[Rfam]
The record is a 64-nucleotide RNA sequence from Pedobacter nyackensis, which matches "DUF805 RNA" in Rfam. By type it is a cis-regulatory element. The base pairs follow the family's consensus structure, which is taken from published work. A search with the family's covariance model found it, with a score of 56 bits.

RNA sequence: AGAUAGUGGAGCAGCUACCACAGACAAAACGGGCGAGCCGAAAAGCCAAACGAGUAGGAAUACA
Numbered sequence: 001a002g003a004u005a006g007u008g009g010a011g012c013a014g015c016u017a018c019c020a021c022a023g024a025c026a027a028a029a030c031g032g033g034c035g036a037g038c039c040g041a042a043a044a045g046c047c048a049a050a051c052g053a054g055u056a057g058g059a060a061u062a063c064a
Stems, first nucleotide, its partner, number of pairs: 006021004032047003038058002
Dot-bracket structure: .....((((........))))..........(((...[[.....))).........]]......